[Rfam]
RNA sequence: CCCUUCUUUUAAAGCACCCUGCUAUAAUUGUGAGGGUGAUGUCUUUGGGCAUGGCCCUAGCAGGCAUGUAAGCAUGGGUACACCAAGGAAGGAAAGUGAAAGCACAGAGUUGUAAAUGAGACUGGGGCGGACCUCUUUCCUAAUGUCCAGUGUCCUCGUCUCAAGAUUGUGUGCCACAUCA
Number, nucleotide and partner (000 for none) at each position: 001c000002c000003c000004u000005u000006c000007u000008u000009u000010u000011a000012a000013a000014g000015c000016a000017c078018c077019c000020u074021g073022c072023u071024a000025u000026a000027a067028u066029u000030g000031u000032g000033a058034g057035g000036g055037u054038g000039a052040u051041g050042u049043c048044u000045u000046u000047g000048g043049g042050c041051a040052u039053g000054g037055c036056c000057c034058u033059a000060g000061c000062a000063g000064g000065c000066a028067u027068g000069u000070a000071a023072g022073c021074a020075u000076g000077g018078g017079u000080a000081c000082a000083c000084c000085a000086a000087g000088g000089a000090a000091g000092g000093a000094a000095a000096g000097u000098g000099a000100a000101a000102g174103c173104a172105c171106a170107g000108a168109g167110u000111u000112g000113u000114a000115a000116a000117u000118g000119a000120g000121a000122c000123u000124g153125g000126g151127g000128c000129g148130g147131a146132c000133c000134u000135c000136u000137u000138u000139c000140c000141u000142a000143a000144u000145g000146u131147c130148c129149a000150g000151u126152g000153u124154c000155c000156u000157c000158g000159u000160c000161u000162c000163a000164a000165g000166a000167u109168u108169g000170u106171g105172u104173g103174c102175c000176a000177c000178a000179u000180c000181a000
RNA: Small nucleolar RNA SNORA81